About this RNA
The record is a 278-nucleotide RNA sequence from Hirsutella rhossiliensis, which matches "A. fumigatus sRNA Afu_309" in Rfam. The base pairs follow the family's consensus structure, which was predicted with WAR. Taxonomically the source falls in Hirsutella (Eukaryota, Ascomycota, Hypocreomycetidae, Hypocreales). For this family Rfam cites "Small ncRNA transcriptome analysis from Aspergillus fumigatus suggests a novel mechanism for regulation of protein synthesis" (Jochl et al., Nucleic Acids Res, 2008).

[Rfam]
RNA sequence: UUCACAUCACGGAUCUGUGCCCGGCGGUCCCCUGCCUGAUCUUUUCAGGUCAGGGUCGACUGCCGUGCAGCUCGAUAACCUCAUGGAGCCACCAACUCGCUAUGGUGUCAAUCUUCCUAUCGACAGGUCCUAGAAUGACUCGGUCUUUGGCUGCCCCGCUCGUCGUCGCAAGACGGCUUGAGCGCGGUGGCUUCUGCACCGGAGGCGCUAUAUUCCAACCCUCUUUUCCGAGGCCGUCGGCCGGUGAGGUUGGGGAAAACCAUGGCAAGCCUACAUGC
Number, nucleotide and partner (000 for none) at each position: 001u000002u000003c000004a000005c000006a000007u000008c000009a000010c000011g130012g129013a128014u127015c126016u125017g124018u123019g068020c067021c000022c065023g064024g063025c000026g061027g060028u059029c058030c055031c054032c053033u052034g051035c049036c048037u047038g046039a045040u000041c000042u000043u000044u000045u039046c038047a037048g036049g035050u000051c034052a033053g032054g031055g030056u000057c000058g029059a028060c027061u026062g000063c024064c023065g022066u000067g020068c019069a000070g000071c000072u000073c000074g000075a000076u122077a000078a120079c000080c000081u000082c000083a000084u110085g109086g108087a000088g106089c105090c104091a000092c000093c000094a000095a000096c000097u000098c000099g000100c000101u000102a000103u000104g090105g089106u088107g000108u086109c085110a084111a000112u000113c000114u000115u000116c000117c000118u000119a000120u078121c000122g076123a018124c017125a016126g015127g014128u013129c012130c011131u000132a000133g000134a000135a000136u000137g000138a000139c000140u000141c000142g000143g199144u198145c000146u000147u000148u000149g195150g194151c000152u000153g191154c190155c000156c000157c000158g183159c182160u181161c180162g177163u176164c175165g174166u173167c172168g000169c000170a000171a000172g167173a166174c165175g164176g163177c162178u000179u000180g161181a160182g159183c158184g000185c000186g000187g000188u000189g000190g154191c153192u000193u000194c150195u149196g000197c000198a144199c143200c000201g000202g000203a000204g271205g270206c269207g266208c265209u264210a263211u262212a000213u000214u000215c000216c000217a000218a000219c000220c255221c254222u253223c252224u000225u000226u000227u000228c249229c248230g000231a000232g242233g241234c240235c239236g000237u000238c000239g235240g234241c233242c232243g000244g000245u000246g000247a000248g229249g228250u000251u000252g223253g222254g221255g220256a000257a000258a000259a000260c000261c000262a211263u210264g209265g208266c207267a000268a000269g206270c205271c204272u000273a000274c000275a000276u000277g000278c000